[Rfam]
RNA sequence: GAAUAUAGAGGGCGGAACAGGUAGCCGCCGCCACGCAUACUUGCGGUUGGAGAUGUAGAUUACCACCUACCUAUAUUC
Numbered sequence: 001g002a003a004u005a006u007a008g009a010g011g012g013c014g015g016a017a018c019a020g021g022u023a024g025c026c027g028c029c030g031c032c033a034c035g036c037a038u039a040c041u042u043g044c045g046g047u048u049g050g051a052g053a054u055g056u057a058g059a060u061u062a063c064c065a066c067c068u069a070c071c072u073a074u075a076u077u078c
Stems, first nucleotide, its partner, number of pairs: 001078008011029005020064004031050001034045004055070004